The family of this 174-nucleotide RNA from Antrihabitans stalagmiti is "c-di-AMP riboswitch aptamer (ydaO/yuaA leader)". NCBI's taxonomy places the organism under Bacteria, Bacillati, Actinomycetes, Nocardiaceae, Antrihabitans.
RNA sequence: GCCUGGUCACCACCAAAUCGGCAGCUUGUACAAGAAGCCGAGCCGGGAACCCAAGUUUCAACUGGGGUGAAUCCCAGCCGAUCGCAACGAAGCACGUUGUCGCGGUCGGAGGGUAGGGCGAACUUCCUAGCCCGAACCCGUCAGCUAACCCGGCCGGUGGAUGAGUGGAAGAAA
Number, nucleotide and partner (000 for none) at each position: 001g000002c000003c000004u000005g000006g000007u000008c000009a000010c000011c159012a158013c157014c156015a000016a000017a000018u041019c040020g039021g038022c037023a000024g000025c000026u000027u000028g000029u000030a000031c000032a000033a000034g000035a000036a000037g022038c021039c020040g019041a018042g154043c153044c152045g151046g150047g149048a000049a000050c000051c000052c064053a063054a000055g000056u000057u000058u000059c000060a000061a000062c000063u053064g052065g139066g138067g137068u000069g000070a000071a000072u000073c113074c112075c111076a000077g000078c000079c000080g000081a000082u000083c000084g000085c000086a000087a000088c000089g000090a000091a000092g000093c000094a000095c000096g000097u000098u000099g000100u000101c000102g000103c000104g000105g000106u000107c000108g000109g000110a000111g075112g074113g073114u000115a000116g133117g132118g131119c130120g000121a000122a000123c000124u000125u000126c000127c000128u000129a000130g119131c118132c117133c116134g000135a000136a000137c067138c066139c065140g000141u000142c000143a000144g000145c000146u000147a000148a000149c047150c046151c045152g044153g043154c042155c000156g014157g013158u012159g011160g000161a000162u000163g000164a000165g000166u000167g000168g000169a000170a000171g000172a000173a000174a000